This 76-nucleotide sequence from Ruminococcaceae bacterium AM28-23LB belongs to the Rfam family "Fluoride riboswitch aptamer (crcB RNA motif)". The source organism's lineage runs through Bacteria, Bacillati, Clostridia, Eubacteriales and Oscillospiraceae. Rfam links the family to the GO terms positive regulation of gene expression and response to fluoride. The match comes from Rfam's covariance-model search (43 bits).

RNA sequence: CUUUUUUCCGGGAAUGAAGUUCUCCCCCGGCCUUCUGAGGCCAAACCGCUUUUUGGCUGAUGACUUCUGCGACAUU
Numbered sequence: 001c002u003u004u005u006u007u008c009c010g011g012g013a014a015u016g017a018a019g020u021u022c023u024c025c026c027c028c029g030g031c032c033u034u035c036u037g038a039g040g041c042c043a044a045a046c047c048g049c050u051u052u053u054u055g056g057c058u059g060a061u062g063a064c065u066u067c068u069g070c071g072a073c074a075u076u
Stems, first nucleotide, its partner, number of pairs: 010026004016067006048057003